[Rfam]
RNA sequence: ACACGUGCUCCGGGGUCGGUGCAAGUCCGAGCCGGCGGUGACAGUCCGCGACCCGCACGGUCCUCGUGACCGGGCGGUUGACCUGGUGGAACUCCAGGACCGACGGUGAGAGUCCGGAUGGGAGGAGCCGUGG
Numbered sequence: 001a002c003a004c005g006u007g008c009u010c011c012g013g014g015g016u017c018g019g020u021g022c023a024a025g026u027c028c029g030a031g032c033c034g035g036c037g038g039u040g041a042c043a044g045u046c047c048g049c050g051a052c053c054c055g056c057a058c059g060g061u062c063c064u065c066g067u068g069a070c071c072g073g074g075c076g077g078u079u080g081a082c083c084u085g086g087u088g089g090a091a092c093u094c095c096a097g098g099a100c101c102g103a104c105g106g107u108g109a110g111a112g113u114c115c116g117g118a119u120g121g122g123a124g125g126a127g128c129c130g131u132g133g
Stems, first nucleotide, its partner, number of pairs: 003131003007128005017029003031113002033102002035049004044100002053077004082098005104116003
A member of the RNA family "FMN riboswitch aptamer (RFN element)" from Cellulomonas marina, 133 nucleotides long. The match comes from Rfam's covariance-model search (84 bits).